[Rfam]
RNA sequence: CCUUUCGCUAAGGAGCCUCCUAUGCGAAAACUCAUGGCCGCUAUCAUAGCGAGCCUGAUAGGGCUGACCGCGCUGUCCGUGUCGACCACGGCCGUCGCAUGCGGGGGUACGAGCUAUCAGUCUUCGGCCGAUGGCAAAUGACCCCGCCGCCCGAAGGCGCCGAGUGCGCACAAAAAAAGGCCUUCAUCCGAGGAUGAAGGCCUUUUACU
Numbered sequence: 001c002c003u004u005u006c007g008c009u010a011a012g013g014a015g016c017c018u019c020c021u022a023u024g025c026g027a028a029a030a031c032u033c034a035u036g037g038c039c040g041c042u043a044u045c046a047u048a049g050c051g052a053g054c055c056u057g058a059u060a061g062g063g064c065u066g067a068c069c070g071c072g073c074u075g076u077c078c079g080u081g082u083c084g085a086c087c088a089c090g091g092c093c094g095u096c097g098c099a100u101g102c103g104g105g106g107g108u109a110c111g112a113g114c115u116a117u118c119a120g121u122c123u124u125c126g127g128c129c130g131a132u133g134g135c136a137a138a139u140g141a142c143c144c145c146g147c148c149g150c151c152c153g154a155a156g157g158c159g160c161c162g163a164g165u166g167c168g169c170a171c172a173a174a175a176a177a178a179g180g181c182c183u184u185c186a187u188c189c190g191a192g193g194a195u196g197a198a199g200g201c202c203u204u205u206u207a208c209u
Stems, first nucleotide, its partner, number of pairs: 003029006011021002013018001036055003039051004061152004070098003073094001077091005101147003106143003113135006157169004175206014
Burkholderia sRNA 11: a 209-nucleotide RNA sequence from Burkholderia sp. SRS-W-2-2016. The organism belongs to Burkholderia, within Bacteria. Rfam describes the family as follows. Identified by RNA-seq, RACE and Northern blot. Strongly expressed in biofilm. Identified in as ncRNA13. It is complimentary by 40 nucleotides with a gene encoding a regulatory protein (BCAL1948). ncS11 is strongly up-regulated in the stationary phase and biofilms, while BCAL1948 is down-regulated under these conditions. For this family Rfam cites "Identification of small RNAs abundant in Burkholderia cenocepacia biofilms reveal putative regulators with a potential role in carbon and iron metabolism" (Sass et al., Sci Rep, 2017). It scores 131 bits against the family's covariance model. The family's RNA type in Rfam is small RNA.